[Rfam]
RNA sequence: CCUAGGGCUCGCGCCCCAGGCUUUACGCAUCCGCCGCUCCGCGGCU
Numbered sequence: 001c002c003u004a005g006g007g008c009u010c011g012c013g014c015c016c017c018a019g020g021c022u023u024u025a026c027g028c029a030u031c032c033g034c035c036g037c038u039c040c041g042c043g044g045c046u
Stems, first nucleotide, its partner, number of pairs: 001020003005016004033045005
Dot-bracket structure: (((.((((....)))).)))............(((((...))))).

Rfam assigns this 46-nucleotide sequence from Aureliella helgolandensis to the family "Acido-Lenti-1 RNA". The base pairs follow the family's consensus structure, which is taken from published work. The family's RNA type in Rfam is small RNA. The family has 87 seed sequences and 2,607 matches in Rfam 15.1.